The family of this 81-nucleotide RNA from Varanus komodoensis is "mir-26 microRNA precursor family". Rfam links the family to the GO terms RISC complex and miRNA-mediated post-transcriptional gene silencing. A search with the family's covariance model found it, with a score of 85 bits. NCBI's taxonomy places the organism under Eukaryota, Chordata, Gnathostomata, Squamata, Varanus. Pairs were carried over by alignment from the consensus structure, which was predicted with RNAalifold. The family has 82 seed sequences and 2,251 matches in Rfam 15.1. The literature on the family includes a 2002 paper in Curr Biol by Lagos-Quintana et al., "Identification of tissue-specific microRNAs from mouse".

[Rfam]
RNA sequence: CUGUAACCCGGUUCAAGUAAUCCAGGAUAGGCUGUGUACAUUCCUGAUGGCCUAUCCUUGAUUACUUGCAGUGGGAUGCAA
Numbered sequence: 001c002u003g004u005a006a007c008c009c010g011g012u013u014c015a016a017g018u019a020a021u022c023c024a025g026g027a028u029a030g031g032c033u034g035u036g037u038a039c040a041u042u043c044c045u046g047a048u049g050g051c052c053u054a055u056c057c058u059u060g061a062u063u064a065c066u067u068g069c070a071g072u073g074g075g076a077u078g079c080a081a
Base pairs, nucleotide, nucleotide: 002080003079004078005077007075008074009073010072012070014068015067016066017065018064019063020062021061022060024058025057026056027055028054029053030052031051032050033049